[Rfam]
RNA sequence: GGCCGGAUAAGACGUUUACGCCGCAUCCGGCAAUUGUGCACCGAUGCCUGAUGCGACGCUGACGCGUCUUAUCAUGCC
Dot-bracket structure: .(((((((..(.((....)).)..)))))))..............((.(((((.(((((....))))).))))).)).
Numbered sequence: 001g002g003c004c005g006g007a008u009a010a011g012a013c014g015u016u017u018a019c020g021c022c023g024c025a026u027c028c029g030g031c032a033a034u035u036g037u038g039c040a041c042c043g044a045u046g047c048c049u050g051a052u053g054c055g056a057c058g059c060u061g062a063c064g065c066g067u068c069u070u071a072u073c074a075u076g077c078c
Stems, first nucleotide, its partner, number of pairs: 002031007011022001013020002046077002049074005055068005
Shown here is a 78-nucleotide RNA sequence from Escherichia coli, a member of the family "Nucleoid-associated noncoding RNA 4 (CssrE)". Rfam classes the family as a small RNA. For this family Rfam cites "A New Noncoding RNA Arranges Bacterial Chromosome Organization" (Qian et al., MBio, 2015). Gene Ontology terms of the family: bacterial nucleoid DNA packaging, bacterial nucleoid and protein binding. In E. coli small RNA transcribed from repeated extragenic palindromic element (REP325) called nucleoid-associated ncRNA 4 (nRNA4) collaborates HU protein in condensing the DNA. The secondary structure but not the sequence of the RNA is important in nucleoid condensation. Also identified in Shigella as CssrE.